[Rfam]
RNA sequence: UAUGGAUCGAUGAUGUUACUAUGAAACUGCGUUAUCUAUCUGAAACAUCCUAAUAGGGAUUGAAGAUAAUCAUAGCAUCCUGAGAUCCAUU
Dot-bracket structure: .((((((.............................................................................)))))).
The record is a 91-nucleotide RNA sequence from Vitis rotundifolia, which matches "Small nucleolar RNA snoR27" in Rfam. The family has 6 seed sequences and 649 matches in Rfam 15.1. Gene Ontology terms of the family: RNA processing and nucleolus. Its Rfam clan is "snR68 clan". The literature on the family includes a 2001 paper in RNA by Brown et al., "Multiple snoRNA gene clusters from Arabidopsis".